[Rfam]
RNA: Small nucleolar RNA R44/J54/Z268 family
RNA sequence: UAUGCAUAUGAUGUAAAGAUAGACCGUGACAUCAGAAGUCUUUCCAGGGUAUGGUGACUCGUCUUUGGGAAUCUCUCUGAUGCAUA
Numbered sequence: 001u002a003u004g005c006a007u008a009u010g011a012u013g014u015a016a017a018g019a020u021a022g023a024c025c026g027u028g029a030c031a032u033c034a035g036a037a038g039u040c041u042u043u044c045c046a047g048g049g050u051a052u053g054g055u056g057a058c059u060c061g062u063c064u065u066u067g068g069g070a071a072u073c074u075c076u077c078u079g080a081u082g083c084a085u086a
Base pairs, nucleotide, nucleotide: 002085003084004083005082006081